[Rfam]
RNA sequence: AACCUUGUGCAGUGGCAACAUCGCAAGCUAUGAAGUCCUAACUGAGCUGCGAUUAUUGCUAGUUGAAAACUAAAACCAAUAUCUCGCCCAGCGUGAGGAUCUACGAUCUUCUACACUGAGGCAAUUUUUUAAGCCCCUCACGGGG
Dot-bracket structure: ...................(((((.(((.....(((....)))..))))))))................................((((((.(((.((..........)).))).))).)))...........((((....))))
Source information:
A member of the RNA family "U4 spliceosomal RNA" from Drosophila rhopaloa, 145 nucleotides long. The base pairs follow the family's consensus structure, which is taken from published work. Its family is annotated with U4 snRNP and spliceosomal tri-snRNP complex assembly in the Gene Ontology. Rfam classes the family as a spliceosomal small nuclear RNA. The organism belongs to Sophophora, within Eukaryota. It scores 102 bits against the family's covariance model.